[Rfam]
RNA sequence: CCUGUGUGUGCAGUGGAUCGACGAUGCAGCGCAAAGUGGAUAACUACUUUGUGCUGCAUCGUCGAUCCACUGCACACACAGG
Numbered sequence: 001c002c003u004g005u006g007u008g009u010g011c012a013g014u015g016g017a018u019c020g021a022c023g024a025u026g027c028a029g030c031g032c033a034a035a036g037u038g039g040a041u042a043a044c045u046a047c048u049u050u051g052u053g054c055u056g057c058a059u060c061g062u063c064g065a066u067c068c069a070c071u072g073c074a075c076a077c078a079c080a081g082g
Base pairs, nucleotide, nucleotide: 001082002081003080004079005078006077007076008075010073012071013070014069015068016067017066018065019064020063022061023060024059026057027056028055029054030053031052032051033050034049036047037046038045

This 82-nucleotide sequence from Geotrypetes seraphini belongs to the Rfam family "MIR9657 microRNA precursor family". Its family is annotated with RISC complex and miRNA-mediated post-transcriptional gene silencing in the Gene Ontology. Lineage of the source: Eukaryota > Opisthokonta > Bilateria > Gnathostomata > Geotrypetes.